[Rfam]
RNA sequence: GCAUCUGAAACUUUGCCACUCCUUGCAGUAUAGUGCUGGAUUGGAGAUACAGGAUGCAACAGGAAAGCAGAGGAAGUCCAGACGAGCUCCACAGUGGACCUUGUCUCUACACCUUUGCAACAUUU
Numbered sequence: 001g002c003a004u005c006u007g008a009a010a011c012u013u014u015g016c017c018a019c020u021c022c023u024u025g026c027a028g029u030a031u032a033g034u035g036c037u038g039g040a041u042u043g044g045a046g047a048u049a050c051a052g053g054a055u056g057c058a059a060c061a062g063g064a065a066a067g068c069a070g071a072g073g074a075a076g077u078c079c080a081g082a083c084g085a086g087c088u089c090c091a092c093a094g095u096g097g098a099c100c101u102u103g104u105c106u107c108u109a110c111a112c113c114u115u116u117g118c119a120a121c122a123u124u125u
Stems, first nucleotide, its partner, number of pairs: 001057005013047002016044003021039002067118006080106007089097003
The family of this 125-nucleotide RNA sequence from Ramphastos sulfuratus is "Small nucleolar RNA SNORA55". Rfam's curators write: ACA55 is a member of the H/ACA class of snoRNA that guide the sites of modification of uridines to pseudouridines. A search with the family's covariance model found it, with a score of 96 bits.